[Rfam]
RNA sequence: GGCAUAUCGCUUGCUUCGCAAUCGGCAAACUGCUCCAACGGCGGAGCAGCCUCAUAGACAAUGGCGUCGU
Numbered sequence: 001g002g003c004a005u006a007u008c009g010c011u012u013g014c015u016u017c018g019c020a021a022u023c024g025g026c027a028a029a030c031u032g033c034u035c036c037a038a039c040g041g042c043g044g045a046g047c048a049g050c051c052u053c054a055u056a057g058a059c060a061a062u063g064g065c066g067u068c069g070u
Base pairs, nucleotide, nucleotide: 030049031048032047033046034045035044036043
narK RNA: a 70-nucleotide sequence from Pseudomonas cavernae. The organism belongs to Pseudomonas, within Bacteria. The family's consensus secondary structure is taken from published work. It is annotated as a cis-regulatory element. A search with the family's covariance model found it, with a score of 55 bits.